[Rfam]
RNA sequence: AUGCAUUCCAUUCGAUUAAGAUAAGAUGGCAAUAAAAAAGCAGCUUUUUCCAUAUUUUAUGGGCUUUUUUGUUGUGCUUAUUUUAUGAAAUGGGGUCGAACAUGGAUAGGUUAAGGAAUAGCCUCUAUAGCUAUGCCUUUUAUUUCUCUAUGCCUUUUCAUUGGUAUGCAGACCGAAGCCCGUACAUGUGGACUUGAGGCCUGCAUUUUUAUU
Numbered sequence: 001a002u003g004c005a006u007u008c009c010a011u012u013c014g015a016u017u018a019a020g021a022u023a024a025g026a027u028g029g030c031a032a033u034a035a036a037a038a039a040g041c042a043g044c045u046u047u048u049u050c051c052a053u054a055u056u057u058u059a060u061g062g063g064c065u066u067u068u069u070u071g072u073u074g075u076g077c078u079u080a081u082u083u084u085a086u087g088a089a090a091u092g093g094g095g096u097c098g099a100a101c102a103u104g105g106a107u108a109g110g111u112u113a114a115g116g117a118a119u120a121g122c123c124u125c126u127a128u129a130g131c132u133a134u135g136c137c138u139u140u141u142a143u144u145u146c147u148c149u150a151u152g153c154c155u156u157u158u159c160a161u162u163g164g165u166a167u168g169c170a171g172a173c174c175g176a177a178g179c180c181c182g183u184a185c186a187u188g189u190g191g192a193c194u195u196g197a198g199g200c201c202u203g204c205a206u207u208u209u210u211a212u213u
Base pairs, nucleotide, nucleotide: 006095007094008093009092010091011090012089013087014086019083020082021081022080023079024078025077029075030074031073032072033071034070035069036068037067038066039065043064044063050062051061052060053059054058108149114147115146116145117144118143119142120141122135124133166206167205168204169203170202171201173199174198176195177194178193180191181190182189183188
This 213-nucleotide sequence from Paenibacillus sedimenti belongs to the Rfam family "Enterococcus sRNA 1300". Rfam classes the family as a small RNA. Rfam describes the family as follows. Expressed in mid and late exponential phases of growth. Expression remained uniform under daptomycin exposure. A reference for the family is Sinel et al. (2017), "Small RNAs in vancomycin-resistant Enterococcus faecium involved in daptomycin response and resistance", Sci Rep.